[Rfam]
RNA sequence: GAAUUGUUGUUGCAAUAGUAAUUCAACUUAGUACGAGAGGAACCGUUGAUUCAGAUAAUUGGUAUUUGCCCUUGGCUGACAAGCCAAUGGGGCGAAGCUACCAUCUGUCGGAUUAUGGCUGAACGCCUCUAAGUCAGAAUCCGUGCUAGAAAGCGACGAUGCUUACCUUCUCCAUAUUUAGAUGAAUACAAAUAGAGUACUCUUGUAGUGCUCCGGUAUCCUAACAGGGGGACGUUAGCCAAGUAGUGGAAGUGCUGCUUGGUGAGUUCCUGAAUUGUAAUUUCAAAUAUUGGAGAGGAUAAAUCCUUUGCAGACGACUUAAAUAAGGAACGGGGUAUUGUAAGCAGUAGAGUAGCCUUGUUGCUACGAUCUGCUGAGAUUAAGCCUUUUGUUCUUCAGAUUUGU
Numbered sequence: 001g002a003a004u005u006g007u008u009g010u011u012g013c014a015a016u017a018g019u020a021a022u023u024c025a026a027c028u029u030a031g032u033a034c035g036a037g038a039g040g041a042a043c044c045g046u047u048g049a050u051u052c053a054g055a056u057a058a059u060u061g062g063u064a065u066u067u068g069c070c071c072u073u074g075g076c077u078g079a080c081a082a083g084c085c086a087a088u089g090g091g092g093c094g095a096a097g098c099u100a101c102c103a104u105c106u107g108u109c110g111g112a113u114u115a116u117g118g119c120u121g122a123a124c125g126c127c128u129c130u131a132a133g134u135c136a137g138a139a140u141c142c143g144u145g146c147u148a149g150a151a152a153g154c155g156a157c158g159a160u161g162c163u164u165a166c167c168u169u170c171u172c173c174a175u176a177u178u179u180a181g182a183u184g185a186a187u188a189c190a191a192a193u194a195g196a197g198u199a200c201u202c203u204u205g206u207a208g209u210g211c212u213c214c215g216g217u218a219u220c221c222u223a224a225c226a227g228g229g230g231g232a233c234g235u236u237a238g239c240c241a242a243g244u245a246g247u248g249g250a251a252g253u254g255c256u257g258c259u260u261g262g263u264g265a266g267u268u269c270c271u272g273a274a275u276u277g278u279a280a281u282u283u284c285a286a287a288u289a290u291u292g293g294a295g296a297g298g299a300u301a302a303a304u305c306c307u308u309u310g311c312a313g314a315c316g317a318c319u320u321a322a323a324u325a326a327g328g329a330a331c332g333g334g335g336u337a338u339u340g341u342a343a344g345c346a347g348u349a350g351a352g353u354a355g356c357c358u359u360g361u362u363g364c365u366a367c368g369a370u371c372u373g374c375u376g377a378g379a380u381u382a383a384g385c386c387u388u389u390u391g392u393u394c395u396u397c398a399g400a401u402u403u404g405u
Stems, first nucleotide, its partner, number of pairs: 006160008016148004021051001023049005052107005060100003067094005072087006109143003116136005168297007301403005307321001310318001327395006333387003337380002344374004349370001352367005
Shown here is a 405-nucleotide part of an RNA from Basidiobolus meristosporus, a member of the family "Eukaryotic large subunit ribosomal RNA". For this family Rfam cites "Crystal structure of the ribosome at 5.5 A resolution" (Yusupov et al., Science, 2001). The family's consensus secondary structure is taken from published work. NCBI's taxonomy places the organism under Eukaryota, Basidiobolomycetes, Basidiobolales, Basidiobolus, Basidiobolus meristosporus. Its family is annotated with ribosome and structural constituent of ribosome in the Gene Ontology. It scores 3310 bits against the family's covariance model.